[Rfam]
RNA sequence: GGCUUAUAGAAUUUUGAUUGUUGCUCUGAGAGUUAAUAUAAUUUCAAUGAUAACUGUCUAACAACCAUCAAAUUUCAAAGCG
Numbered sequence: 001g002g003c004u005u006a007u008a009g010a011a012u013u014u015u016g017a018u019u020g021u022u023g024c025u026c027u028g029a030g031a032g033u034u035a036a037u038a039u040a041a042u043u044u045c046a047a048u049g050a051u052a053a054c055u056g057u058c059u060a061a062c063a064a065c066c067a068u069c070a071a072a073u074u075u076c077a078a079a080g081c082g
Stems, first nucleotide, its partner, number of pairs: 002081004013072006020065004025060001028058002031055004

Shown here is an 82-nucleotide sequence from Schmidtea mediterranea, a member of the family "mir-315 microRNA precursor family". The literature on the family includes a 2003 paper in Dev Cell by Aravin et al., "The small RNA profile during Drosophila melanogaster development". The organism belongs to Schmidtea, within Eukaryota.